[Rfam]
RNA sequence: GCUGUUGUAGCACAGUCGGUAGUGCGUCGCAUUGGUAGUGCGGAGGUCACGAGUUCGAUUCUCGUCAGCAGCU
Numbered sequence: 001g002c003u004g005u006u007g008u009a010g011c012a013c014a015g016u017c018g019g020u021a022g023u024g025c026g027u028c029g030c031a032u033u034g035g036u037a038g039u040g041c042g043g044a045g046g047u048c049a050c051g052a053g054u055u056c057g058a059u060u061c062u063c064g065u066c067a068g069c070a071g072c073u
Stems, first nucleotide, its partner, number of pairs: 001072007010025004027043005049065005
Rfam assigns this 73-nucleotide RNA from Butyrivibrio sp. CB08 to the family "tRNA". A search with the family's covariance model found it, with a score of 66 bits. Pairs were carried over by alignment from the consensus structure, which is taken from published work.